The family of this 83-nucleotide RNA sequence from Prolemur simus is "mir-1343 microRNA precursor family".
[Rfam]
RNA sequence: CGGGCAUCGGUGCUGGGGAGUGGCCCCCGGGGCGGGCCUCUGCUCUGGCCCUUCUUGGGGCCUGCACUCUUGCUCCGGGCCCG
Numbered sequence: 001c002g003g004g005c006a007u008c009g010g011u012g013c014u015g016g017g018g019a020g021u022g023g024c025c026c027c028c029g030g031g032g033c034g035g036g037c038c039u040c041u042g043c044u045c046u047g048g049c050c051c052u053u054c055u056u057g058g059g060g061c062c063u064g065c066a067c068u069c070u071u072g073c074u075c076c077g078g079g080c081c082c083g
Stems, first nucleotide, its partner, number of pairs: 003081003007078004012073002015070004020065004025060007034051005
Notes:
Taxonomically the source falls in Prolemur (Eukaryota, Opisthokonta, Sarcopterygii, Tetrapoda). The family's consensus secondary structure was predicted with RNAalifold. Rfam links the family to the GO terms RISC complex and miRNA-mediated post-transcriptional gene silencing. A search with the family's covariance model found it, with a score of 82 bits. Rfam 15.1 lists 238 matches to the family in 131 species.